[Rfam]
RNA sequence: GUCAACUACCCCGGCCUAAAGGCCGAGGCUUGUGAAAGCAGGUCUGGUUGACCAGCCUAAGUUUUUCGAGAACUACGUUGCAGACAGGUUCAAGACCCACCUCGGAAUGCUUCCUCAGUUCCGAGCUCUGGAAGCCUCAGAAGCAGACAAGCAUUGGGUACGCACGAAACGGUCUGAGGCAAAAUGCCGGUCUGUUCAACAUUGGCGAGGGGAAUUGCUC
Number, nucleotide and partner (000 for none) at each position: 001g052002u051003c050004a049005a048006c047007u046008a045009c000010c028011c027012c025013g024014g000015c022016c021017u000018a000019a000020a000021g016022g015023c000024c013025g012026a000027g011028g010029c042030u041031u040032g039033u000034g000035a000036a000037a000038g000039c032040a031041g030042g029043u000044c000045u008046g007047g006048u005049u004050g003051a002052c001053c000054a000055g206056c205057c204058u000059a202060a074061g073062u072063u071064u070065u000066u000067c000068g000069a000070g064071a063072a062073c061074u060075a000076c000077g200078u199079u198080g197081c000082a195083g000084a000085c000086a191087g000088g000089u000090u000091c000092a000093a000094g000095a000096c000097c131098c130099a000100c000101c125102u124103c123104g122105g121106a120107a119108u118109g216110c000111u214112u213113c212114c211115u210116c209117a000118g108119u107120u106121c105122c104123g103124a102125g101126c000127u000128c000129u000130g098131g097132a000133a000134g180135c179136c178137u177138c176139a175140g174141a173142a000143g000144c000145a000146g000147a000148c000149a000150a000151g000152c000153a000154u000155u000156g000157g000158g000159u000160a000161c000162g000163c000164a000165c000166g000167a000168a000169a000170c000171g000172g000173u141174c140175u139176g138177a137178g136179g135180c134181a000182a000183a000184a000185u000186g000187c000188c000189g000190g000191u086192c000193u000194g000195u082196u000197c080198a079199a078200c077201a000202u059203u000204g057205g056206c055207g000208a000209g116210g115211g114212g113213a112214a111215u000216u109217g000218c000219u000220c000
The record is a 220-nucleotide sequence from Sutterella wadsworthensis, which matches "HNH endonuclease-associated RNA and ORF (HEARO) RNA" in Rfam.
The family's RNA type in Rfam is non-coding RNA gene.
The match comes from Rfam's covariance-model search (122 bits).
A reference for the family is Weinberg et al. (2009), "Exceptional structured noncoding RNAs revealed by bacterial metagenome analysis", Nature.
Taxonomically the source falls in Sutterella wadsworthensis (Bacteria, Pseudomonadati, Burkholderiales, Sutterellaceae).